[Rfam]
Nucleotides: 083
Base pairs, nucleotide, nucleotide: 001083002082003081006078007077008076009075
Number, partner (000 for none) and nucleotide at each position: 001083g002082c003081u004000g005000g006078u007077g008076u009075a010000a011000g012000u013000g014000a015000u016000g017000a018000c019000u020000g021000a022000c023000u024000u025000u026000u027000u028000u029000c030000c031000c032000c033000a034000u035000c036000a037000g038000a039000g040000c041000g042000a043000c044000a045000g046000u047000g048000u049000u050000g051000a052000u053000u054000u055000c056000u057000c058000a059000g060000u061000a062000a063000a064000a065000u066000c067000c068000c069000a070000u071000g072000g073000g074000c075009u076008g077007c078006a079000g080000a081003a082002g083001c